[Rfam]
RNA: Small Cajal body specific RNA 6
RNA sequence: GGUCAAUGAUGAAUAGUAAAAGGUCUGAGUGCACAAGAGAAUCACACUCCCAUUACCCUUUCAGCUCCCAACAGUCUCUCUGUCCCAUCACGCUAUAGCAAUGCUGUGAUUGGGGGAGAGGCUGCUGACAAUCAGGAUAAGCUCAGUGCCUGCUAUUUACAGUGUAAGGAAGCAUGGCACUGAAUGUCAUCCAACAGAACCAAUGAAGGAGUUUAGGGUUUUGGGAUGUCUUGAUUUGUGGUGUGCGUGAUCUCAAGUUUUCAAGCUGAGACC
Dot-bracket structure: ((((................................((((.((....(((((............((((((.((((........((.(((((((.........).)))))).)).......)))).)).......((((.(........(.((((................)))).)..........).))))...............))))..........)))))......................))))))...............))))